[Rfam]
RNA sequence: AAAGCAGGCCAGACAAUCGCUGCUUGGCUGGUAACGGCCAAGGGGAGGAAAGUCCGGACUCCACAGGGCAGGGUGUUGGCUAACAGCCAUCCACGGCAACGUGCGGAAUAGGGCCACAGAGACGAGUCUUCCCAUCGGGUUCGCCCGGCGGGAAGGGUGAAACGCGGUAACCUCCACCUGGAGCAAUCCCAAAUAGGCAGGCAUCGAGGCGGCCCGCUGAGCCUGCGGGUAGGGAGCUGGAGCCGGUCGGUAACGACCGGCCUAGAGGAAUGGUUGUCACGCCGGGUCCGCCGCAAGGCGGCCAGGCGCACAGAAUCCGGCUUAUCGGCCUGCUUUGCUU
Numbered sequence: 001a002a003a004g005c006a007g008g009c010c011a012g013a014c015a016a017u018c019g020c021u022g023c024u025u026g027g028c029u030g031g032u033a034a035c036g037g038c039c040a041a042g043g044g045g046a047g048g049a050a051a052g053u054c055c056g057g058a059c060u061c062c063a064c065a066g067g068g069c070a071g072g073g074u075g076u077u078g079g080c081u082a083a084c085a086g087c088c089a090u091c092c093a094c095g096g097c098a099a100c101g102u103g104c105g106g107a108a109u110a111g112g113g114c115c116a117c118a119g120a121g122a123c124g125a126g127u128c129u130u131c132c133c134a135u136c137g138g139g140u141u142c143g144c145c146c147g148g149c150g151g152g153a154a155g156g157g158u159g160a161a162a163c164g165c166g167g168u169a170a171c172c173u174c175c176a177c178c179u180g181g182a183g184c185a186a187u188c189c190c191a192a193a194u195a196g197g198c199a200g201g202c203a204u205c206g207a208g209g210c211g212g213c214c215c216g217c218u219g220a221g222c223c224u225g226c227g228g229g230u231a232g233g234g235a236g237c238u239g240g241a242g243c244c245g246g247u248c249g250g251u252a253a254c255g256a257c258c259g260g261c262c263u264a265g266a267g268g269a270a271u272g273g274u275u276g277u278c279a280c281g282c283c284g285g286g287u288c289c290g291c292c293g294c295a296a297g298g299c300g301g302c303c304a305g306g307c308g309c310a311c312a313g314a315a316u317c318c319g320g321c322u323u324a325u326c327g328g329c330c331u332g333c334u335u336u337g338c339u340u
Stems, first nucleotide, its partner, number of pairs: 001336010011325001012278007020045002023042006050323003054320005059183004066215004071179005077089004091105001092103004106174002111172002113168003128156002131152003135148005187235004197226006208218003242261008

Description:
Bacterial RNase P class A: a 340-nucleotide RNA from Cupriavidus plantarum.